[Rfam]
RNA sequence: CCCGUUCAUCUUGCUCAUUCAUAGGGCUCUGCCUCAGCAGCAAGACGGAAGUAGGAUUUUAUACCGAAGGAACGCACC
Dot-bracket structure: ..(((((.(((((((.......................)))))))..[.....((........))....)))))]...
Numbered sequence: 001c002c003c004g005u006u007c008a009u010c011u012u013g014c015u016c017a018u019u020c021a022u023a024g025g026g027c028u029c030u031g032c033c034u035c036a037g038c039a040g041c042a043a044g045a046c047g048g049a050a051g052u053a054g055g056a057u058u059u060u061a062u063a064c065c066g067a068a069g070g071a072a073c074g075c076a077c078c
Stems, first nucleotide, its partner, number of pairs: 003074005009045007048075001054065002

Shown here is a 78-nucleotide RNA sequence from Vasconcelosia minhoensis, a member of the family "Glutamine riboswitch aptamer (glnA leader)". On this family, see Ames and Breaker, RNA Biol 2011: "Bacterial aptamers that selectively bind glutamine".